[Rfam]
RNA sequence: GGUUGCAAAUUUGAGGCCAUAGCAGACAUACUUAUGGAGUGGCCCUGUCUGAUUCUAAUGAACCAGUAACUUCUGCU
Numbered sequence: 001g002g003u004u005g006c007a008a009a010u011u012u013g014a015g016g017c018c019a020u021a022g023c024a025g026a027c028a029u030a031c032u033u034a035u036g037g038a039g040u041g042g043c044c045c046u047g048u049c050u051g052a053u054u055c056u057a058a059u060g061a062a063c064c065a066g067u068a069a070c071u072u073c074u075g076c077u
Stems, first nucleotide, its partner, number of pairs: 013045001015044004021077006028040002049066003053062003
Overview
A member of the RNA family "Mammalian CPEB3 ribozyme" from Crocodylus porosus, 77 nucleotides long. The family's consensus secondary structure is taken from published work.